[Rfam]
RNA sequence: CAACGAUACUGGCAAACCCGUCGAAAGUCGGGGACGCAAAGCCUCAGAUCUAACGCAUGACAAUGCUAAGAUGGCUGGGUUACCGAA
Numbered sequence: 001c002a003a004c005g006a007u008a009c010u011g012g013c014a015a016a017c018c019c020g021u022c023g024a025a026a027g028u029c030g031g032g033g034a035c036g037c038a039a040a041g042c043c044u045c046a047g048a049u050c051u052a053a054c055g056c057a058u059g060a061c062a063a064u065g066c067u068a069a070g071a072u073g074g075c076u077g078g079g080u081u082a083c084c085g086a087a
Stems, first nucleotide, its partner, number of pairs: 012037002017032004022027001040081004045077003048072003055066004
RNA: c-di-GMP-I riboswitch aptamer